RNA sequence: UGGCGAAGGUCCCAGCAGGGAGGUGAGUACUCUAUGAAUUGAGACCUCUCUAACAAUGUUAAUUAAAGCCUUCGCAAAUGAAUUUUGCCGAAUCGUAGGAUGCCCAAUUAGUCCAUUUUUGGAGCGUCUUGAACCCUCGGCUACAUUUUU
Dot-bracket structure: ..(((((((.(((....)))....(((..(((.(....).)))....)))..................)))))))...........(((((.......((.((((((...........)))).)).))........))))).........

Small nucleolar RNA snoR145: a 150-nucleotide sequence from Corchorus capsularis. By type it is an H/ACA-box small nucleolar RNA. For this family Rfam cites "Mining small RNA sequencing data: a new approach to identify small nucleolar RNAs in Arabidopsis" (Chen and Wu, Nucleic Acids Res, 2009). The base pairs follow the family's consensus structure, which was predicted with mfold. The organism belongs to Corchorus, within Eukaryota.